This 87-nucleotide RNA from Acetobacterium woodii belongs to the Rfam family "c-di-GMP-I riboswitch aptamer". Rfam links the family to the GO term cyclic-di-GMP binding. Taxonomically the source falls in Acetobacterium woodii (Bacteria, Clostridia, Eubacteriales, Eubacteriaceae). The match comes from Rfam's covariance-model search (75 bits). GEMM was predicted in a large-scale screen for bacterial structured RNA regulatory elements.
[Rfam]
RNA sequence: ACAUGAUAUUGGCAUACUUAUUGAAAAGUAAGGACGCAAAACUAUAGGGUCUAAAUAAUGUAUAUUAUAUGACAGCCAGUUGUACAA
Number, nucleotide and partner (000 for none) at each position: 001a000002c000003a000004u000005g000006a000007u000008a000009u000010u000011g000012g037013c036014a000015u000016a000017c032018u031019u030020a029021u028022u027023g000024a000025a000026a000027a022028g021029u020030a019031a018032g017033g000034a000035c000036g013037c012038a000039a000040a081041a080042c079043u078044a000045u000046a000047g077048g076049g073050u072051c071052u000053a000054a000055a000056u067057a066058a065059u064060g000061u000062a000063u000064a059065u058066u057067a056068u000069a000070u000071g051072a050073c049074a000075g000076c048077c047078a043079g042080u041081u040082g000083u000084a000085c000086a000087a000